The record is a 365-nucleotide part of an RNA from Plasmodiophora brassicae, which matches "Eukaryotic large subunit ribosomal RNA" in Rfam.

[Rfam]
RNA sequence: GACUCUAGUCUGACAUUGUGAGAUGACUUGGGAGGUGUAGCAUAAGUGGGAGCUCCGGCGCCGAUGAAAUACCACUACUCCUGAUGUUGUUUGACUUAAUGGUUUCAUAGCGGAUCUGCCGCGAGAGCGGCAGACUUCUGGAAUUAAACCCGGCGGGCGGCUUCGGUCGCCGAGCGGGUGACGCUCGACCAUGACAUUGUCAGGUGGGGAGUUUGGCUGGGGCGGCACAUCUGUUAAACGAUAACACAGGUGUCCUAAGAUGAGCUCAAAGAGAACAGAAAUCUCUUGUAGAACAGAAGGGUAAAAGCUCAUUUGAUUUGGAUUUUCAGUAUGAAUACAAACUGUGAAAGCAUGGCCUACCGAUC
Numbered sequence: 001g002a003c004u005c006u007a008g009u010c011u012g013a014c015a016u017u018g019u020g021a022g023a024u025g026a027c028u029u030g031g032g033a034g035g036u037g038u039a040g041c042a043u044a045a046g047u048g049g050g051a052g053c054u055c056c057g058g059c060g061c062c063g064a065u066g067a068a069a070u071a072c073c074a075c076u077a078c079u080c081c082u083g084a085u086g087u088u089g090u091u092u093g094a095c096u097u098a099a100u101g102g103u104u105u106c107a108u109a110g111c112g113g114a115u116c117u118g119c120c121g122c123g124a125g126a127g128c129g130g131c132a133g134a135c136u137u138c139u140g141g142a143a144u145u146a147a148a149c150c151c152g153g154c155g156g157g158c159g160g161c162u163u164c165g166g167u168c169g170c171c172g173a174g175c176g177g178g179u180g181a182c183g184c185u186c187g188a189c190c191a192u193g194a195c196a197u198u199g200u201c202a203g204g205u206g207g208g209g210a211g212u213u214u215g216g217c218u219g220g221g222g223c224g225g226c227a228c229a230u231c232u233g234u235u236a237a238a239c240g241a242u243a244a245c246a247c248a249g250g251u252g253u254c255c256u257a258a259g260a261u262g263a264g265c266u267c268a269a270a271g272a273g274a275a276c277a278g279a280a281a282u283c284u285c286u287u288g289u290a291g292a293a294c295a296g297a298a299g300g301g302u303a304a305a306a307g308c309u310c311a312u313u314u315g316a317u318u319u320g321g322a323u324u325u326u327c328a329g330u331a332u333g334a335a336u337a338c339a340a341a342c343u344g345u346g347a348a349a350g351c352a353u354g355g356c357c358u359a360c361c362g363a364u365c
Stems, first nucleotide, its partner, number of pairs: 002212004009204007018095002021092007028084007045076005052059002099192005109185004117132005148179005215228001216226003229251006254355002260312006266292002269287006293302002317341004322336004343352003
It scores 2826 bits against the family's covariance model.